[Rfam]
RNA sequence: GCAGAAUAAUAAUGCUAGUAUGCUUUAGUCAGAAGUCAGCAGAAGACAUAGUACCCUGUUUCUCUACUUUAUACAGGGGAAGGUC
Numbered sequence: 001g002c003a004g005a006a007u008a009a010u011a012a013u014g015c016u017a018g019u020a021u022g023c024u025u026u027a028g029u030c031a032g033a034a035g036u037c038a039g040c041a042g043a044a045g046a047c048a049u050a051g052u053a054c055c056c057u058g059u060u061u062c063u064c065u066a067c068u069u070u071a072u073a074c075a076g077g078g079g080a081a082g083g084u085c
Stems, first nucleotide, its partner, number of pairs: 001023002006021003010017002036043002045085003054078006

Overview: Shown here is an 85-nucleotide RNA from Leadbetterella byssophila, a member of the family "Group II catalytic intron D1-D4-1". Rfam's curators write: Group II introns are found in rRNA, tRNA and mRNA of organelles in fungi, plants and protists, and also in mRNA in bacteria. Gene Ontology term of the family: Group II intron splicing. For this family Rfam cites "Group II introns: structure and catalytic versatility of large natural ribozymes" (Lehmann and Schmidt, Crit Rev Biochem Mol Biol, 2003). A search with the family's covariance model found it, with a score of 51 bits.